[Rfam]
RNA: Bacteroidales small SRP
RNA sequence: UGUCACCGGAUAAGCAACUAUGCGAUCAGCUCCUACUGAACUCCCCCAGGGUCGGAAGGCAGCAAGGGUAAGUGGUUGUAGCGAUGCGACGUAGCUUGCUUAUCCACUU
Numbered sequence: 001u002g003u004c005a006c007c008g009g010a011u012a013a014g015c016a017a018c019u020a021u022g023c024g025a026u027c028a029g030c031u032c033c034u035a036c037u038g039a040a041c042u043c044c045c046c047c048a049g050g051g052u053c054g055g056a057a058g059g060c061a062g063c064a065a066g067g068g069u070a071a072g073u074g075g076u077u078g079u080a081g082c083g084a085u086g087c088g089a090c091g092u093a094g095c096u097u098g099c100u101u102a103u104c105c106a107c108u109u
Base pairs, nucleotide, nucleotide: 008105009104010103011102012101013100014099015098018094019093020092021091022090023088024087025085026084